The family of this 96-nucleotide RNA sequence from Trichechus manatus is "mir-544 microRNA precursor family". A search with the family's covariance model found it, with a score of 69 bits. The literature on the family includes a 2010 paper in Genes Dev by Chiang et al., "Mammalian microRNAs: experimental evaluation of novel and previously annotated genes". The family's consensus secondary structure was predicted with RNAalifold.
[Rfam]
RNA sequence: AUCAACUGGGGAUCUUAUUAAAAUGCAGAUUCUGAUUCAGUAGGUGAGGCAUGGCCUGAGACUCUGCAUUUCUAAUCAGCUCCCAGGUGAUCCUGC
Numbered sequence: 001a002u003c004a005a006c007u008g009g010g011g012a013u014c015u016u017a018u019u020a021a022a023a024u025g026c027a028g029a030u031u032c033u034g035a036u037u038c039a040g041u042a043g044g045u046g047a048g049g050c051a052u053g054g055c056c057u058g059a060g061a062c063u064c065u066g067c068a069u070u071u072c073u074a075a076u077c078a079g080c081u082c083c084c085a086g087g088u089g090a091u092c093c094u095g096c
Base pairs, nucleotide, nucleotide: 003089004088009083010082011081014079015078017076018075019074020073021071022070023069025067026066027065028064029063031061032060033059